[Rfam]
Nucleotides: 108
Stems, first nucleotide, its partner, number of pairs: 001108004015098002026044005047086005053079001064078004
Number, partner (000 for none) and nucleotide at each position: 001108g002107g003106g004105a005000u006000a007000u008000g009000a010000u011000g012000a013000g014000u015098g016097g017000u018000a019000a020000u021000u022000u023000a024000c025000u026044u027043g028042c029041g030040c031000a032000g033000u034000u035000u036000u037000u038000a039000u040030g041029c042028g043027u044026g045000a046000u047086g048085a049084g050083c051082a052000c053079c054000c055000g056000a057000c058000c059000c060000a061000a062000g063000c064078c065077u066076g067075u068000u069000a070000c071000g072000a073000c074000a075067a076066c077065g078064g079053g080000a081000g082051u083050g084049c085048u086047c087000c088000a089000a090000u091000u092000c093000u094000u095000a096000c097016c098015c099000u100000u101000c102000u103000g104000a105004u106003c107002c108001c

The family of this 108-nucleotide sequence from Zingiber officinale is "Small nucleolar RNA Z279/snoR105/snoR108". A reference for the family is Marker et al. (2002), "Experimental RNomics: identification of 140 candidates for small non-messenger RNAs in the plant Arabidopsis thaliana", Curr Biol. Clan: snoU13 clan. Rfam's curators write: This family includes the plant snoRNAs known as Z279, snoR105 and snoR108. NCBI's taxonomy places the organism under Eukaryota, Streptophyta, Embryophyta, Tracheophyta, Zingiber. A search with the family's covariance model found it, with a score of 70 bits.